[Rfam]
RNA sequence: GCGCUGGUUUAGCUCAGUGGUUACUUCCUACAACAAAUCUUUCAGAUUUCGACUGUGUGUCUCCCUUGGAUCAAACCACGGGCGCUGUCCAGCGUUUUG
Numbered sequence: 001g002c003g004c005u006g007g008u009u010u011a012g013c014u015c016a017g018u019g020g021u022u023a024c025u026u027c028c029u030a031c032a033a034c035a036a037a038u039c040u041u042u043c044a045g046a047u048u049u050c051g052a053c054u055g056u057g058u059g060u061c062u063c064c065c066u067u068g069g070a071u072c073a074a075a076c077c078a079c080g081g082g083c084g085c086u087g088u089c090c091a092g093c094g095u096u097u098u099g
Base pairs, nucleotide, nucleotide: 002094003093004092005091006090007089012083013082014081015080017079018078019077020076025075026074
RNA: Vault RNA
Organism: Muraenolepis orangiensis